[Rfam]
Shown here is a 36-nucleotide sequence, a member of the family "DUF805b RNA".
RNA sequence: AUCGGGUAAGCCGAAAACCGAAUCUAAGAGUAGGCA
Numbered sequence: 001a002u003c004g005g006g007u008a009a010g011c012c013g014a015a016a017a018c019c020g021a022a023u024c025u026a027a028g029a030g031u032a033g034g035c036a
Base pairs, nucleotide, nucleotide: 002021003020004019005018010035011034012033